[Rfam]
The record is a 114-nucleotide sequence from Cryobacterium sp. MDB2-A-2, which matches "ALIL pseudoknot" in Rfam. Rfam classes the family as a cis-regulatory element. The family has 26 seed sequences and 2,146 matches in Rfam 15.1. On this family, see Mazauric et al., J Biol Chem 2008: "Apical loop-internal loop RNA pseudoknots: a new type of stimulator of -1 translational frameshifting in bacteria".

RNA sequence: GGCUUUCUUCGCGGCGGAGCUCGACCGCCCCUCGAUCAGGUAGUCAUGUUCAUCGACGAGAAGAAGAGCGAGUUCGGGGUCGAGCCGAUCUGCCGGGAGUUGCAGGUCGCCCCG
Numbered sequence: 001g002g003c004u005u006u007c008u009u010c011g012c013g014g015c016g017g018a019g020c021u022c023g024a025c026c027g028c029c030c031c032u033c034g035a036u037c038a039g040g041u042a043g044u045c046a047u048g049u050u051c052a053u054c055g056a057c058g059a060g061a062a063g064a065a066g067a068g069c070g071a072g073u074u075c076g077g078g079g080u081c082g083a084g085c086c087g088a089u090c091u092g093c094c095g096g097g098a099g100u101u102g103c104a105g106g107u108c109g110c111c112c113c114g
Base pairs, nucleotide, nucleotide: 013029014028015027016026017025075114076113077112078111079110086109087108089106090105091104092103093102095100